RNA sequence: AUACCGGCUUAGCCUAGUGGUUACUUCUAAAUGAAUACACUCUGUCCAGUGAUUCUGGGUUCACCACCCACCCCACACCACGGGCGCCGUCCGGUAUCUUU
Numbered sequence: 001a002u003a004c005c006g007g008c009u010u011a012g013c014c015u016a017g018u019g020g021u022u023a024c025u026u027c028u029a030a031a032u033g034a035a036u037a038c039a040c041u042c043u044g045u046c047c048a049g050u051g052a053u054u055c056u057g058g059g060u061u062c063a064c065c066a067c068c069c070a071c072c073c074c075a076c077a078c079c080a081c082g083g084g085c086g087c088c089g090u091c092c093g094g095u096a097u098c099u100u101u
Stems, first nucleotide, its partner, number of pairs: 002096006012085004017081004029061001
RNA: Vault RNA
Organism: Ciona savignyi